[Rfam]
RNA sequence: AUAAUGAAACUUCUGUCUGGCUAAUGUAGGUUAAGGGGCAGUCCGUAGAGAUCCUAGGGAACGUGAAAUUCGUAUGG
Numbered sequence: 001a002u003a004a005u006g007a008a009a010c011u012u013c014u015g016u017c018u019g020g021c022u023a024a025u026g027u028a029g030g031u032u033a034a035g036g037g038g039c040a041g042u043c044c045g046u047a048g049a050g051a052u053c054c055u056a057g058g059g060a061a062c063g064u065g066a067a068a069u070u071c072g073u074a075u076g077g
Stems, first nucleotide, its partner, number of pairs: 012074001013041006042060003046056003061073003